[Rfam]
A member of the RNA family "Mammalian CPEB3 ribozyme" from Alligator mississippiensis, 73 nucleotides long. The source organism's lineage runs through Eukaryota, Gnathostomata, Euteleostomi, Amniota and Alligator. The mammalian CPEB3 ribozyme is a self cleaving RNA located in the second intron of the CPEB3 gene which belongs to a family of genes regulating messenger RNA polyadenylation.

RNA sequence: AGUCACAAUCUUGUGGCCAUAGUAGAAGUGCUCAGUGCGACUGUCAGAUUCCAGCAAAUCUGUGAAUUCUGCA
Numbered sequence: 001a002g003u004c005a006c007a008a009u010c011u012u013g014u015g016g017c018c019a020u021a022g023u024a025g026a027a028g029u030g031c032u033c034a035g036u037g038c039g040a041c042u043g044u045c046a047g048a049u050u051c052c053a054g055c056a057a058a059u060c061u062g063u064g065a066a067u068u069c070u071g072c073a
Base pairs, nucleotide, nucleotide: 013041014040016038017037022072023071024070025069026068027067029034045062046061047060048059049058050057
It scores 37 bits against the family's covariance model.